Shown here is a 123-nucleotide RNA sequence, a member of the family "DUF3800-I RNA". It is one of the family's seed sequences. The base pairs follow the family's consensus structure, which is taken from published work. Actinobacteria, Firmicutes, Fusobacteria, Proteobacteria (1 example), Tenericutes (2 examples).
RNA sequence: UUGUAUUACCGGAGAGAAAUCUCGUCAGGUCGAUAGUUAGGUCGCGAAUAUUUAUAUUUAAGCGUAAUUCUAAGUACGCCGCCCUAAUUGGGAAAAGCCCUUGCGGGCUUUUUUCUUUUGAUA
Numbered sequence: 001u002u003g004u005a006u007u008a009c010c011g012g013a014g015a016g017a018a019a020u021c022u023c024g025u026c027a028g029g030u031c032g033a034u035a036g037u038u039a040g041g042u043c044g045c046g047a048a049u050a051u052u053u054a055u056a057u058u059u060a061a062g063c064g065u066a067a068u069u070c071u072a073a074g075u076a077c078g079c080c081g082c083c084c085u086a087a088u089u090g091g092g093a094a095a096a097g098c099c100c101u102u103g104c105g106g107g108c109u110u111u112u113u114u115c116u117u118u119u120g121a122u123a
Stems, first nucleotide, its partner, number of pairs: 008030003011025001012023003034090006044082003047058003062079005092113009